[Rfam]
RNA sequence: CCGGUUCCGGUUCACCCCGCGCACAUCACCACGGGGACCCGGCGCC
Numbered sequence: 001c002c003g004g005u006u007c008c009g010g011u012u013c014a015c016c017c018c019g020c021g022c023a024c025a026u027c028a029c030c031a032c033g034g035g036g037a038c039c040c041g042g043c044g045c046c
Stems, first nucleotide, its partner, number of pairs: 003046003007042004015036005021030001

Shown here is a 46-nucleotide sequence, a member of the family "L31-Actinobacteria ribosomal protein leader".
Rfam classes the family as a cis-regulatory leader.
Pairs were carried over by alignment from the consensus structure, which is taken from published work.
It is one of the family's seed sequences.